[Rfam]
RNA sequence: UCGCUCAUUUACGAGCGAUUAAGCUUUCCGGUGUAUUACUUCGAUUGUCCAUCUUUGGACCGAGUGGCUCCUGUCCACUCUGUUUUGACGCCUCCCUGUUAUCAACUUCAAAGCCGCCGGAAACGGCGGCUCUUUUUU
Numbered sequence: 001u002c003g004c005u006c007a008u009u010u011a012c013g014a015g016c017g018a019u020u021a022a023g024c025u026u027u028c029c030g031g032u033g034u035a036u037u038a039c040u041u042c043g044a045u046u047g048u049c050c051a052u053c054u055u056u057g058g059a060c061c062g063a064g065u066g067g068c069u070c071c072u073g074u075c076c077a078c079u080c081u082g083u084u085u086u087g088a089c090g091c092c093u094c095c096c097u098g099u100u101a102u103c104a105a106c107u108u109c110a111a112a113g114c115c116g117c118c119g120g121a122a123a124c125g126g127c128g129g130c131u132c133u134u135u136u137u138u
Stems, first nucleotide, its partner, number of pairs: 001043001003041001005014002015037001020035002023032003047060004062080006087100004110133001112131008